[Rfam]
RNA sequence: GGAGGCGGCGACGCCCCCCGACUUGACUGGCCAAGGCCGGUCAUGCCGCCUCCGCACCUCAUUCUCGAUGAUGCCACUUCAAAGCGGUCCGAAAGGGCCGCUU
Numbered sequence: 001g002g003a004g005g006c007g008g009c010g011a012c013g014c015c016c017c018c019c020g021a022c023u024u025g026a027c028u029g030g031c032c033a034a035g036g037c038c039g040g041u042c043a044u045g046c047c048g049c050c051u052c053c054g055c056a057c058c059u060c061a062u063u064c065u066c067g068a069u070g071a072u073g074c075c076a077c078u079u080c081a082a083a084g085c086g087g088u089c090c091g092a093a094a095g096g097g098c099c100g101c102u103u
Base pairs, nucleotide, nucleotide: 001053002052003051004050005049006048007047008046009045010044012020013019025042026041027040028039029038030037031036082103083102084101085100086099087098088097089096090095

A member of the RNA family "Cauldobacter sRNA CC3552" from Brevundimonas sp. SH203, 103 nucleotides long. A reference for the family is Landt et al. (2008), "Small non-coding RNAs in Caulobacter crescentus", Mol Microbiol. NCBI's taxonomy places the organism under Bacteria, Pseudomonadota, Alphaproteobacteria, Caulobacterales, Brevundimonas. Rfam classes the family as a small RNA. The match comes from Rfam's covariance-model search (91 bits).